[Rfam]
RNA sequence: GGUUCGGGCGCGGGUCGGUGGGACGAUCCGCAGGAAUGGAACCCGCCUCGUUUCGCUCGGGAUGGAUCAGGCCGCAGCCCGGCGGCCCGACCU
Numbered sequence: 001g002g003u004u005c006g007g008g009c010g011c012g013g014g015u016c017g018g019u020g021g022g023a024c025g026a027u028c029c030g031c032a033g034g035a036a037u038g039g040a041a042c043c044c045g046c047c048u049c050g051u052u053u054c055g056c057u058c059g060g061g062a063u064g065g066a067u068c069a070g071g072c073c074g075c076a077g078c079c080c081g082g083c084g085g086c087c088c089g090a091c092c093u
Stems, first nucleotide, its partner, number of pairs: 001043005010031008064093002067090002070087005
The family of this 93-nucleotide RNA sequence is "Rhodo-rpoB RNA". The family's consensus secondary structure is taken from published work. By type it is a cis-regulatory element.